[Rfam]
RNA sequence: AAAACGGCUCCUUUAGGAGCCACCAAAUGUUAACAGAGUCAUGAUC
Numbered sequence: 001a002a003a004a005c006g007g008c009u010c011c012u013u014u015a016g017g018a019g020c021c022a023c024c025a026a027a028u029g030u031u032a033a034c035a036g037a038g039u040c041a042u043g044a045u046c
Stems, first nucleotide, its partner, number of pairs: 006021006
Background
A member of the RNA family "Histone 3' UTR stem-loop" from Desmophyllum pertusum, 46 nucleotides long. Rfam's curators write: The mRNAs of metazoan histone genes lack a poly-A tail. 3' end processing occurs at a site between a highly conserved stem-loop (modelled by this family) and a purine rich region around 20 nts downstream (the histone downstream element, or HDE). The stem-loop is bound by a 31 kDa stem-loop binding protein (SLBP - also termed the histone hairpin binding protein, or HBP). Together with U7 snRNA binding of the HDE, SLBP binding nucleate s the formation of the processing complex. The histone 3' UTR stem-loop is also involved in nucleocytoplasmic transport of the mRNA, and in stability regulation and translation efficiency in the cytoplasm. The family's RNA type in Rfam is cis-regulatory element. Its family is annotated with mRNA 3'-end processing by stem-loop binding and cleavage in the Gene Ontology. The base pairs follow the family's consensus structure, which is taken from published work. A search with the family's covariance model found it, with a score of 36 bits.